[Rfam]
The family of this 110-nucleotide sequence from Kingdonia uniflora is "Plant small nucleolar RNA R71".

RNA sequence: AGUCCAUGAUGUGGGCACUUAAGUAAGAGACUUUUGUAUCUCUCCCAACUAUCGUAGAAGUAUUCAUCUUCCUUUUGAGUGAAAGUGUAAAUUUUGUUAUGUAAAAGAUU
Numbered sequence: 001a002g003u004c005c006a007u008g009a010u011g012u013g014g015g016c017a018c019u020u021a022a023g024u025a026a027g028a029g030a031c032u033u034u035u036g037u038a039u040c041u042c043u044c045c046c047a048a049c050u051a052u053c054g055u056a057g058a059a060g061u062a063u064u065c066a067u068c069u070u071c072c073u074u075u076u077g078a079g080u081g082a083a084a085g086u087g088u089a090a091a092u093u094u095u096g097u098u099a100u101g102u103a104a105a106a107g108a109u110u
Base pairs, nucleotide, nucleotide: 001110003108004107006102057074058073060071
A search with the family's covariance model found it, with a score of 42 bits. Rfam links the family to the GO terms nucleolus and RNA processing. By type it is a C/D-box small nucleolar RNA. The source organism's lineage runs through Eukaryota, Streptophyta, Spermatophyta, Ranunculales and Kingdonia.